[Rfam]
RNA: MIR1520 microRNA precursor family
RNA sequence: UUUUUAUUGGAUGAUGACUGUCAUGUGUCAUGUUUUGAUUGGUCAAUGAAAACAACAAUGUAUUUCAUCUUCCAUGGAGUUGACUUCCAAUCAGAACAUGACACGUGACAAUCAUCAUCC
Numbered sequence: 001u002u003u004u005u006a007u008u009g010g011a012u013g014a015u016g017a018c019u020g021u022c023a024u025g026u027g028u029c030a031u032g033u034u035u036u037g038a039u040u041g042g043u044c045a046a047u048g049a050a051a052a053c054a055a056c057a058a059u060g061u062a063u064u065u066c067a068u069c070u071u072c073c074a075u076g077g078a079g080u081u082g083a084c085u086u087c088c089a090a091u092c093a094g095a096a097c098a099u100g101a102c103a104c105g106u107g108a109c110a111a112u113c114a115u116c117a118u119c120c
Stems, first nucleotide, its partner, number of pairs: 020109004025104002029100003033096004038091005